6C RNA: a 73-nucleotide RNA from Actinoplanes sp. ATCC 53533. The match comes from Rfam's covariance-model search (61 bits). Its family is annotated with sporulation in the Gene Ontology. The literature on the family includes a 2007 paper in Nucleic Acids Res by Weinberg et al., "Identification of 22 candidate structured RNAs in bacteria using the CMfinder comparative genomics pipeline".
RNA sequence: UCCGAUUCGGCUCGACCCCCCCGGAGCCGAAUCCCAGAACGACCCCCGACUCCCCCGUCGGGGGUCGUUCCCA
Numbered sequence: 001u002c003c004g005a006u007u008c009g010g011c012u013c014g015a016c017c018c019c020c021c022c023g024g025a026g027c028c029g030a031a032u033c034c035c036a037g038a039a040c041g042a043c044c045c046c047c048g049a050c051u052c053c054c055c056c057g058u059c060g061g062g063g064g065u066c067g068u069u070c071c072c073a
Stems, first nucleotide, its partner, number of pairs: 002037001004033010038069013